[Rfam]
RNA: Purine riboswitch aptamer
Organism: Paenibacillus aquistagni
RNA sequence: ACAACAAAUCGCAUACCGUCUCGUAUAAACUCGGAAAUAAGGUCCGAACGUCUCUACCAGGCCACCGUAAAAGGCUUGACUACGAGCAAGGAUUCGUACUAU
Number, nucleotide and partner (000 for none) at each position: 001a000002c000003a000004a000005c000006a000007a000008a000009u000010c000011g000012c000013a000014u000015a000016c000017c000018g000019u000020c086021u085022c084023g083024u082025a081026u000027a000028a000029a000030c000031u047032c046033g045034g044035a043036a000037a000038u000039a000040a000041g000042g000043u035044c034045c033046g032047a031048a000049c000050g000051u000052c000053u000054c000055u000056a000057c000058c078059a077060g076061g075062c074063c073064a000065c000066c000067g000068u000069a000070a000071a000072a000073g063074g062075c061076u060077u059078g058079a000080c000081u025082a024083c023084g022085a021086g020087c000088a000089a000090g000091g000092a000093u000094u000095c000096g000097u000098a000099c000100u000101a000102u000